[Rfam]
RNA sequence: UCACCGAAACCACUGACUUCAGUUCAGGAACGAGGGCGGGGGACCCACCAUCCCACCGGAUAACGGCGGAACGUCGAGAGACGUACCGCCUUGGGGUUAAGUCCACAACCGGACAGCAGUCCGGCGCAGGACCGGGCACCUCUCGCUCGAACCCGACAGCUUACUUCGCAGGCGCGUGGAGAGAGGAAAA
Numbered sequence: 001u002c003a004c005c006g007a008a009a010c011c012a013c014u015g016a017c018u019u020c021a022g023u024u025c026a027g028g029a030a031c032g033a034g035g036g037c038g039g040g041g042g043a044c045c046c047a048c049c050a051u052c053c054c055a056c057c058g059g060a061u062a063a064c065g066g067c068g069g070a071a072c073g074u075c076g077a078g079a080g081a082c083g084u085a086c087c088g089c090c091u092u093g094g095g096g097u098u099a100a101g102u103c104c105a106c107a108a109c110c111g112g113a114c115a116g117c118a119g120u121c122c123g124g125c126g127c128a129g130g131a132c133c134g135g136g137c138a139c140c141u142c143u144c145g146c147u148c149g150a151a152c153c154c155g156a157c158a159g160c161u162u163a164c165u166u167c168g169c170a171g172g173c174g175c176g177u178g179g180a181g182a183g184a185g186g187a188a189a190a
Base pairs, nucleotide, nucleotide: 002174004172005171010034036169037168038167039166040165041164046093047092094154095153096152102131103130104129134148135147136146137145
The family of this 190-nucleotide RNA sequence from Gordonia hirsuta is "c-di-AMP riboswitch aptamer (ydaO/yuaA leader)".
This family represents a conserved RNA structure found upstream of the ydaO and yuaA genes in Bacillus subtilis and related genes in other bacteria.
Taxonomically the source falls in Gordonia hirsuta (Bacteria, Bacillati, Actinomycetes, Mycobacteriales).
A search with the family's covariance model found it, with a score of 55 bits.
The pairing is the family consensus, mapped onto this sequence.